[Rfam]
RNA sequence: AGUGAGUAUAGAGGCGCAGAGACCAUUAGUAAGCGAUUGGAGGACAAUGAGAUCCAGUGAUAAUUGCCGAAAGGGGAAUUUGCCGAAGUUGAGAGAAUCUCAUUAUUCUUGAAGCUGGGUCUGCAUUAAAUAAGUGCAGAACUGUCAUAUAGGAAUUCUAUAUGGAGGGCUAUCUCACGC
Numbered sequence: 001a002g003u004g005a006g007u008a009u010a011g012a013g014g015c016g017c018a019g020a021g022a023c024c025a026u027u028a029g030u031a032a033g034c035g036a037u038u039g040g041a042g043g044a045c046a047a048u049g050a051g052a053u054c055c056a057g058u059g060a061u062a063a064u065u066g067c068c069g070a071a072a073g074g075g076g077a078a079u080u081u082g083c084c085g086a087a088g089u090u091g092a093g094a095g096a097a098u099c100u101c102a103u104u105a106u107u108c109u110u111g112a113a114g115c116u117g118g119g120u121c122u123g124c125a126u127u128a129a130a131u132a133a134g135u136g137c138a139g140a141a142c143u144g145u146c147a148u149a150u151a152g153g154a155a156u157u158c159u160a161u162a163u164g165g166a167g168g169g170c171u172a173u174c175u176c177a178c179g180c
Base pairs, nucleotide, nucleotide: 006175008173009172010171011170016083017082018081019080020079023076024075033067034066035065036064037063038062039061087116088115089114090113093110094109095108096107097106098105117143118142120140121139122138123137124136125135126134127133145165146164147163148162149161150160151159
This 180-nucleotide RNA sequence from Bacillus sp. DNRA2 belongs to the Rfam family "Lysine riboswitch aptamer". It scores 120 bits against the family's covariance model. On this family, see Mandal et al., Cell 2003: "Riboswitches Control Fundamental Biochemical Pathways in Bacillus subtilis and Other Bacteria". Rfam 15.1 lists 3,224 matches to the family in 1,923 species. The base pairs follow the family's consensus structure, which is taken from published work. Taxonomically the source falls in Bacillus (Bacteria, Bacillota, Bacilli, Caryophanales).